The family of this 72-nucleotide RNA sequence from Arminella tubonensis is "Makes More Granules Regulator RNA (mmgR)". NCBI's taxonomy places the organism under Bacteria, Pseudomonadati, Alphaproteobacteria, Rhizobiaceae, Arminella. It scores 58 bits against the family's covariance model. The family is grouped with related families in Rfam's "suhB sRNA clan". The pairing is the family consensus, mapped onto this sequence.

[Rfam]
RNA sequence: UGUAAAUACCCUCCUUGGGUGUUUCCUCCCUAGACUUAACCGCGCCAAAAGCGCGGUUCUUUUUUGGAGUGA
Numbered sequence: 001u002g003u004a005a006a007u008a009c010c011c012u013c014c015u016u017g018g019g020u021g022u023u024u025c026c027u028c029c030c031u032a033g034a035c036u037u038a039a040c041c042g043c044g045c046c047a048a049a050a051g052c053g054c055g056g057u058u059c060u061u062u063u064u065u066g067g068a069g070u071g072a
Stems, first nucleotide, its partner, number of pairs: 008020004039057007